Shown here is an 82-nucleotide sequence from Daphnia galeata, a member of the family "tRNA". Taxonomically the source falls in Daphnia (Eukaryota, Metazoa, Bilateria, Altocrustacea). It scores 54 bits against the family's covariance model. Transfer RNA (tRNA) molecules are approximately 80 nucleotides in length.
[Rfam]
RNA sequence: GAUAGUGUGGCCGAGUGGUCUAUGGCGCUGGUUUUAGGCACCAGUCUCUCAGGAGGCAAGGGUUCGAAACCCUUCACUGUCA
Number, nucleotide and partner (000 for none) at each position: 001g081002a080003u079004a078005g077006u076007g075008u000009g000010g026011c025012c024013g023014a000015g000016u000017g000018g000019u000020c000021u000022a000023u013024g012025g011026c010027g000028c044029u043030g042031g041032u040033u000034u000035u000036a000037g000038g000039c000040a032041c031042c030043a029044g028045u000046c000047u000048c000049u000050c000051a000052g000053g000054a000055g000056g000057c000058a074059a073060g072061g071062g070063u000064u000065c000066g000067a000068a000069a000070c062071c061072c060073u059074u058075c007076a006077c005078u004079g003080u002081c001082a000